The record is a 74-nucleotide RNA sequence from Ornithorhynchus anatinus, which matches "mir-130 microRNA precursor family" in Rfam. A search with the family's covariance model found it, with a score of 42 bits.

RNA sequence: UCCAAGCCUGAGCUCUUUCCACUAAGCCAUGCUGCUUAGCAGCGUGGCUCAGUGGAAAAAGCACGGGCUUUGGA
Numbered sequence: 001u002c003c004a005a006g007c008c009u010g011a012g013c014u015c016u017u018u019c020c021a022c023u024a025a026g027c028c029a030u031g032c033u034g035c036u037u038a039g040c041a042g043c044g045u046g047g048c049u050c051a052g053u054g055g056a057a058a059a060a061g062c063a064c065g066g067g068c069u070u071u072g073g074a
Stems, first nucleotide, its partner, number of pairs: 001074003005069006012062003016058004022052002025049006